[Rfam]
The record is a 73-nucleotide sequence from Salipiger sp. CCB-MM3, which matches "Singlet oxygen resistance RNA X" in Rfam. The literature on the family includes a 2016 paper in RNA Biol by Peng et al., "Regulation of a polyamine transporter by the conserved 3' UTR-derived sRNA SorX confers resistance to singlet oxygen and organic hydroperoxides in Rhodobacter sphaeroides". Taxonomically the source falls in Salipiger (Bacteria, Pseudomonadota, Alphaproteobacteria, Roseobacteraceae).

RNA sequence: UCCCGUUGCAUGUGCGGGUUAUCACAUGCACCUCCCUGUUGGACCUGGCCGGGCUUUGUGCCCGGCCUUUUUU
Numbered sequence: 001u002c003c004c005g006u007u008g009c010a011u012g013u014g015c016g017g018g019u020u021a022u023c024a025c026a027u028g029c030a031c032c033u034c035c036c037u038g039u040u041g042g043a044c045c046u047g048g049c050c051g052g053g054c055u056u057u058g059u060g061c062c063c064g065g066c067c068u069u070u071u072u073u
Base pairs, nucleotide, nucleotide: 008029009028010027011026012025013024014023047067048066049065050064051063052062053061054060